[Rfam]
RNA: mir-130 microRNA precursor family
RNA sequence: UCCAAAUGAUACUUCUUCUAACAUUGCUGCACUGUUGCCAACAGUGCAGCAAUGUUACCAACAGUGCAGCAAUGUUAGAAGAAGUAUCAUUUAGAA
Numbered sequence: 001u002c003c004a005a006a007u008g009a010u011a012c013u014u015c016u017u018c019u020a021a022c023a024u025u026g027c028u029g030c031a032c033u034g035u036u037g038c039c040a041a042c043a044g045u046g047c048a049g050c051a052a053u054g055u056u057a058c059c060a061a062c063a064g065u066g067c068a069g070c071a072a073u074g075u076u077a078g079a080a081g082a083a084g085u086a087u088c089a090u091u092u093a094g095a096a
Stems, first nucleotide, its partner, number of pairs: 001096001003094001005091006012084008022074016